[Rfam]
RNA sequence: AUUUCAUGAAGAGUGGCUGAGGGACGGGCCCUGUGACGCCACGACAACCGGCUCGAGCAAUUCGGGACAUCGGUGUCAACUCUCUCCUGCGUAACGGCGGGGAACAUGAGAU
Number, nucleotide and partner (000 for none) at each position: 001a112002u111003u110004u109005c108006a107007u106008g105009a000010a000011g000012a000013g042014u041015g040016g039017c038018u000019g000020a000021g031022g030023g029024a000025c000026g084027g083028g082029c023030c022031c021032u000033g000034u000035g000036a000037c000038g017039c016040c015041a014042c013043g077044a076045c075046a074047a000048c073049c072050g068051g000052c066053u065054c064055g063056a000057g000058c000059a000060a000061u000062u000063c055064g054065g053066g052067a000068c050069a000070u000071c000072g049073g048074u046075g045076u044077c043078a000079a000080c000081u104082c028083u027084c026085u000086c101087c100088u099089g098090c097091g000092u000093a000094a000095c000096g000097g090098c089099g088100g087101g086102g000103a000104a081105c008106a007107u006108g005109a004110g003111a002112u001
RNA: SAM riboswitch aptamer (S box leader)
Organism: Acidobacterium capsulatum